RNA sequence: CUAGAGUGGCUUCAACGAACAUGAGGAAGGAGGUAUCACCAUGUACUGGGAUGAAGCUGUCAUUUUCGGGCUGGUGACCGUCGGCAUGAUGAUCGCCUUCAUGGGGGGAUUCGCCGCCUUCAUCAUUCGCGAUCAGAAACGCAAGGGCAAGCGUCUGCCCUGAGGUUCUUCGGGAAAGACUUGUCAGCGUGAUCGCAGGAUUGUCGUCAGGGGAGGGGGCUCCGCCCCCUUGUAGCCGGCCUUCGGGUCGGCUUUUUUAGG
Numbered sequence: 001c002u003a004g005a006g007u008g009g010c011u012u013c014a015a016c017g018a019a020c021a022u023g024a025g026g027a028a029g030g031a032g033g034u035a036u037c038a039c040c041a042u043g044u045a046c047u048g049g050g051a052u053g054a055a056g057c058u059g060u061c062a063u064u065u066u067c068g069g070g071c072u073g074g075u076g077a078c079c080g081u082c083g084g085c086a087u088g089a090u091g092a093u094c095g096c097c098u099u100c101a102u103g104g105g106g107g108g109a110u111u112c113g114c115c116g117c118c119u120u121c122a123u124c125a126u127u128c129g130c131g132a133u134c135a136g137a138a139a140c141g142c143a144a145g146g147g148c149a150a151g152c153g154u155c156u157g158c159c160c161u162g163a164g165g166u167u168c169u170u171c172g173g174g175a176a177a178g179a180c181u182u183g184u185c186a187g188c189g190u191g192a193u194c195g196c197a198g199g200a201u202u203g204u205c206g207u208c209a210g211g212g213g214a215g216g217g218g219g220c221u222c223c224g225c226c227c228c229c230u231u232g233u234a235g236c237c238g239g240c241c242u243u244c245g246g247g248u249c250g251g252c253u254u255u256u257u258u259a260g261g
Stems, first nucleotide, its partner, number of pairs: 010107004056066001083094002164229001235252007
RNA: PhrS